[Rfam]
RNA sequence: UACUGAUUCUCUGGAGAGUUCCUGCAAAGAUGCGGGACGCCGAAGGGUUAAGGCUAUUCCAGCCGAUAUCUCAGGCACAAAGGACAGGGCAAAAAAA
Numbered sequence: 001u002a003c004u005g006a007u008u009c010u011c012u013g014g015a016g017a018g019u020u021c022c023u024g025c026a027a028a029g030a031u032g033c034g035g036g037a038c039g040c041c042g043a044a045g046g047g048u049u050a051a052g053g054c055u056a057u058u059c060c061a062g063c064c065g066a067u068a069u070c071u072c073a074g075g076c077a078c079a080a081a082g083g084a085c086a087g088g089g090c091a092a093a094a095a096a097a
Base pairs, nucleotide, nucleotide: 007091009089010088011087012086013085020037021036022035023034039076040075041074042072043071046070047069048068053063054062
A member of the RNA family "Glycine riboswitch aptamer" from Treponema sp. JC4, 97 nucleotides long. The pairing is the family consensus, mapped onto this sequence.